The family of this 117-nucleotide sequence from Ligilactobacillus ruminis is "Ribosomal protein L10 leader". The literature on the family includes a 1994 paper in Prog Nucleic Acid Res Mol Biol by Zengel and Lindahl, "Diverse mechanisms for regulating ribosomal protein synthesis in Escherichia coli". This family is a putative r-protein leader autoregulatory structure found in B. subtilis and other low-GC Gram-positive bacteria.

[Rfam]
RNA sequence: UUUUAUAUUAUGAUUCUACCUAAGACUCAGGUGGCUUUUGCCUUAAUAUCCUGCCGAGGAGCAAUGUUAAGUUCUCUCUCUGUGUCUUGGUGGACAUAGGGUUUUUUUAUUUAGGAA
Number, nucleotide and partner (000 for none) at each position: 001u000002u000003u000004u000005a000006u000007a000008u000009u000010a000011u000012g000013a000014u000015u000016c000017u000018a000019c000020c000021u000022a000023a000024g000025a000026c000027u000028c053029a052030g051031g050032u000033g042034g041035c040036u000037u000038u000039u000040g035041c034042c033043u000044u000045a000046a000047u000048a000049u000050c031051c030052u029053g028054c000055c000056g000057a000058g000059g000060a000061g000062c000063a000064a000065u000066g000067u000068u000069a000070a000071g000072u000073u000074c000075u000076c000077u000078c101079u100080c099081u098082g097083u096084g095085u094086c093087u000088u000089g000090g000091u000092g000093g086094a085095c084096a083097u082098a081099g080100g079101g078102u000103u000104u000105u000106u000107u000108u000109a000110u000111u000112u000113a000114g000115g000116a000117a000
The family's RNA type in Rfam is cis-regulatory leader. NCBI's taxonomy places the organism under Bacteria, Bacilli, Lactobacillaceae, Ligilactobacillus, Ligilactobacillus ruminis.